[Rfam]
RNA sequence: CCCCUUUUCUUUUGCGGCGCACGCCCUAUAUGGGUCGGUGCCGGCUUGCCGGAUAUGAUGAUAAACUGCGCCGUUCAAUAGGCACAGCGGACCCGGGGGCGGUACCCGGCGGCUCCACCAUCACCCGUCCCUUCAUUGGGGCAACCCUGUUGUCGCAGGGGUGAUGACGGGGCCGAACUAGGAUCGACGUGUGUUGAAAAGCGGUGUUUUCAUUCGGGCUGAGUAACCCGUUCAAGGCUCAAAACUCACAAGUGCCAACGACAACGAAGCACUCGCUCUCGCCGCGUAAUUCUAGGACCUAACGGUCUGAAGUUACAAAGCUAAAGCGCGGUUGGACCCACCGGGCAACAGAAGGGAUACCA
Numbered sequence: 001c002c003c004c005u006u007u008u009c010u011u012u013u014g015c016g017g018c019g020c021a022c023g024c025c026c027u028a029u030a031u032g033g034g035u036c037g038g039u040g041c042c043g044g045c046u047u048g049c050c051g052g053a054u055a056u057g058a059u060g061a062u063a064a065a066c067u068g069c070g071c072c073g074u075u076c077a078a079u080a081g082g083c084a085c086a087g088c089g090g091a092c093c094c095g096g097g098g099g100c101g102g103u104a105c106c107c108g109g110c111g112g113c114u115c116c117a118c119c120a121u122c123a124c125c126c127g128u129c130c131c132u133u134c135a136u137u138g139g140g141g142c143a144a145c146c147c148u149g150u151u152g153u154c155g156c157a158g159g160g161g162u163g164a165u166g167a168c169g170g171g172g173c174c175g176a177a178c179u180a181g182g183a184u185c186g187a188c189g190u191g192u193g194u195u196g197a198a199a200a201g202c203g204g205u206g207u208u209u210u211c212a213u214u215c216g217g218g219c220u221g222a223g224u225a226a227c228c229c230g231u232u233c234a235a236g237g238c239u240c241a242a243a244a245c246u247c248a249c250a251a252g253u254g255c256c257a258a259c260g261a262c263a264a265c266g267a268a269g270c271a272c273u274c275g276c277u278c279u280c281g282c283c284g285c286g287u288a289a290u291u292c293u294a295g296g297a298c299c300u301a302a303c304g305g306u307c308u309g310a311a312g313u314u315a316c317a318a319a320g321c322u323a324a325a326g327c328g329c330g331g332u333u334g335g336a337c338c339c340a341c342c343g344g345g346c347a348a349c350a351g352a353a354g355g356g357a358u359a360c361c362a
Stems, first nucleotide, its partner, number of pairs: 041052004057214005068207007083193003087190003093109005110175007215230004220241003329343004334360001336358001338356002
RNA: Alphaproteobacteria transfer-messenger RNA
Organism: Sphingomonas sp. IC081